[Rfam]
RNA sequence: GCCUUACUCCAGCAGCACAAUUAAUACUGGGGGCAUUGGAAAAAGCGUAACUCCAAUAUUUACGUGCUGCUAAAGCACUGC
Numbered sequence: 001g002c003c004u005u006a007c008u009c010c011a012g013c014a015g016c017a018c019a020a021u022u023a024a025u026a027c028u029g030g031g032g033g034c035a036u037u038g039g040a041a042a043a044a045g046c047g048u049a050a051c052u053c054c055a056a057u058a059u060u061u062a063c064g065u066g067c068u069g070c071u072a073a074a075g076c077a078c079u080g081c
Stems, first nucleotide, its partner, number of pairs: 001081002005077001007075001011071008023060004028055003
mir-16 microRNA precursor family: an 81-nucleotide sequence from Callorhinchus milii. Taxonomically the source falls in Callorhinchus (Eukaryota, Metazoa, Chondrichthyes, Chimaeriformes). The family is grouped with related families in Rfam's "mir-15 clan".